[Rfam]
The record is a 79-nucleotide RNA from Labrus bergylta, which matches "Small nucleolar RNA SNORD72" in Rfam. snoRNA HBII-240 belongs to the CD family of snoRNAs. It is the human orthologue of the mouse MBII-240 and is predicted to guide 2'O-ribose methylation of the large 28S rRNA at residue U4590. Its family is annotated with RNA processing and nucleolus in the Gene Ontology. For this family Rfam cites "RNomics: an experimental approach that identifies 201 candidates for novel, small, non-messenger RNAs in mouse" (Huttenhofer et al., EMBO J, 2001). Lineage of the source: Eukaryota > Vertebrata > Actinopteri > Euacanthomorphacea > Labrus. The base pairs follow the family's consensus structure.
RNA sequence: UGCUUACCAGUGAUGUUGAAAAAUAAAUGUCUGAACAUAUGAAUUCAAUAUGAUAUCAGUUUAUUCUCUGAGGUAAGCA
Numbered sequence: 001u002g003c004u005u006a007c008c009a010g011u012g013a014u015g016u017u018g019a020a021a022a023a024u025a026a027a028u029g030u031c032u033g034a035a036c037a038u039a040u041g042a043a044u045u046c047a048a049u050a051u052g053a054u055a056u057c058a059g060u061u062u063a064u065u066c067u068c069u070g071a072g073g074u075a076a077g078c079a
Stems, first nucleotide, its partner, number of pairs: 002078007